[Rfam]
RNA: sroB RNA
RNA sequence: CCGCAGCCGCCAAGCGGCGGCAUGCGUAUAACGAGAAUAUGAGAAAUUCCUCUUUGACUGGCCAAUAGCGAUAUUGGCCAUUUUUUU
Numbered sequence: 001c002c003g004c005a006g007c008c009g010c011c012a013a014g015c016g017g018c019g020g021c022a023u024g025c026g027u028a029u030a031a032c033g034a035g036a037a038u039a040u041g042a043g044a045a046a047u048u049c050c051u052c053u054u055u056g057a058c059u060g061g062c063c064a065a066u067a068g069c070g071a072u073a074u075u076g077g078c079c080a081u082u083u084u085u086u087u
Stems, first nucleotide, its partner, number of pairs: 007020005059080009